[Rfam]
RNA sequence: GUUCGUCUUCAGGGGCAGGGUGCAAUUCCCGACCGGUGGUAAUAGUCCACGAACUGCAUUAAGUUGCGGUUGAAUCGGUGUAAAUCCGAUACCGACAGUAUAGUCUGGAUAAAGAAGAUAGGG
Dot-bracket structure: ..(.((((((.......(((.......))).[[((((((.....[[))))..(((............)))...(((((.......)))))]])).(((....]])))......)))))).)..